[Rfam]
RNA: DUF805b RNA
RNA sequence: AAAAGGGAAACCGAAAACUUUACAGAGUAGGUG
Numbered sequence: 001a002a003a004a005g006g007g008a009a010a011c012c013g014a015a016a017a018c019u020u021u022a023c024a025g026a027g028u029a030g031g032u033g
Base pairs, nucleotide, nucleotide: 002021003020004019005018010032011031012030